[Rfam]
RNA sequence: UACGUUCAUCUUAACUUAUAGACGGAAGUAGACUAUUGCAACGAUAGUUGAAGGAACGCAUU
Number, nucleotide and partner (000 for none) at each position: 001u000002a000003c058004g057005u056006u055007c054008a000009u022010c021011u020012u000013a000014a000015c000016u000017u000018a000019u000020a011021g010022a009023c000024g000025g059026a000027a000028g000029u000030a000031g049032a048033c047034u046035a045036u044037u043038g000039c000040a000041a000042c000043g037044a036045u035046a034047g033048u032049u031050g000051a000052a000053g000054g007055a006056a005057c004058g003059c025060a000061u000062u000
Glutamine riboswitch aptamer (glnA leader): a 62-nucleotide RNA. On this family, see Ames and Breaker, RNA Biol 2011: "Bacterial aptamers that selectively bind glutamine".